[Rfam]
RNA sequence: ACUGCUUUUCUUUGAUGUCCCCAUAUUGAGGAGCCCAUCGACCCCGCCAUUCAGGUUCAAGGUCGAUGGGCGUUUUCUU
Numbered sequence: 001a002c003u004g005c006u007u008u009u010c011u012u013u014g015a016u017g018u019c020c021c022c023a024u025a026u027u028g029a030g031g032a033g034c035c036c037a038u039c040g041a042c043c044c045c046g047c048c049a050u051u052c053a054g055g056u057u058c059a060a061g062g063u064c065g066a067u068g069g070g071c072g073u074u075u076u077c078u079u
Base pairs, nucleotide, nucleotide: 033071034070035069036068037067038066039065040064041063042062043061

This 79-nucleotide sequence from Affinibrenneria salicis belongs to the Rfam family "RybB RNA". About the family: This ncRNA was identified in a large scale screen of E. coli. The function of this short RNA is unknown. The exact 5' and 3' ends of this RNA are uncertain. Lineage of the source: Bacteria > Pseudomonadati > Pseudomonadota > Pectobacteriaceae > Affinibrenneria. By type it is a small RNA. For this family Rfam cites "Identification of novel small RNAs using comparative genomics and microarrays" (Wassarman et al., Genes Dev, 2001). Pairs were carried over by alignment from the consensus structure, which was predicted with PFOLD.